Rfam assigns this 166-nucleotide RNA sequence from Manduca sexta to the family "U1 spliceosomal RNA". The family's RNA type in Rfam is spliceosomal small nuclear RNA. Taxonomically the source falls in Manduca (Eukaryota, Bilateria, Pancrustacea, Insecta). The base pairs follow the family's consensus structure, which is taken from published work. About the family: U1 is a small nuclear RNA (snRNA) component of the spliceosome (involved in pre-mRNA splicing). Its 5' end forms complementary base pairs with the 5' splice junction, thus defining the 5' donor site of an intron.
RNA sequence: AUACUUACCUGGCGUAGGGAUAACUGUAAUCAUAAAGGCAGUUCCCCCGGGGCGAGGGCUCAAUCAUAGCACUGCGAUUGAGUAUGACCCCCGCGAUUACCCCUAAAGUGGGUAACUCGGACGUGUAAUUUUUGGGAGUGGGGGAUAGCGUUCGCGCUGCCCCCUU
Numbered sequence: 001a002u003a004c005u006u007a008c009c010u011g012g013c014g015u016a017g018g019g020a021u022a023a024c025u026g027u028a029a030u031c032a033u034a035a036a037g038g039c040a041g042u043u044c045c046c047c048c049g050g051g052g053c054g055a056g057g058g059c060u061c062a063a064u065c066a067u068a069g070c071a072c073u074g075c076g077a078u079u080g081a082g083u084a085u086g087a088c089c090c091c092c093g094c095g096a097u098u099a100c101c102c103c104u105a106a107a108g109u110g111g112g113u114a115a116c117u118c119g120g121a122c123g124u125g126u127a128a129u130u131u132u133u134g135g136g137a138g139u140g141g142g143g144g145a146u147a148g149c150g151u152u153c154g155c156g157c158u159g160c161c162c163c164c165u166u
Base pairs, nucleotide, nucleotide: 012124013123014122015121017047018046019045023042024041025040026039027038049092050091051090052089054088056085058083060081061080062079064077065076094119095118096117097115098114099113101111102110140165141164142163143162144161147158148157149156150155